Record summary: The record is a 67-nucleotide sequence from Rhizobium tibeticum, which matches "S-element" in Rfam. The family's RNA type in Rfam is cis-regulatory element. On this family, see Venkova-Canova et al., Mol Microbiol 2004: "Two discrete elements are required for the replication of a repABC plasmid: an antisense RNA and a stem-loop structure". From the family's description: This family represents a group of S-elements from p42d and related plasmids. The S-element has multiple functions and is believed to act as a negative regulator of repC transcription, be required for efficient replication and act as a translational enhancer of repC. Taxonomically the source falls in Rhizobium (Bacteria, Alphaproteobacteria, Hyphomicrobiales, Rhizobiaceae). Gene Ontology terms of the family: translation regulator activity and mRNA transcription.
RNA sequence: AGUCAAGAGUCUUUGGCACCGUUUCGGUGAGCAAAUUUCUUUUGCCUGAUCGAAGGUGAAGGAAAUG
Dot-bracket structure: .........(((((..((((.(((.(..(.(((((.....))))).)..).))))))))))))....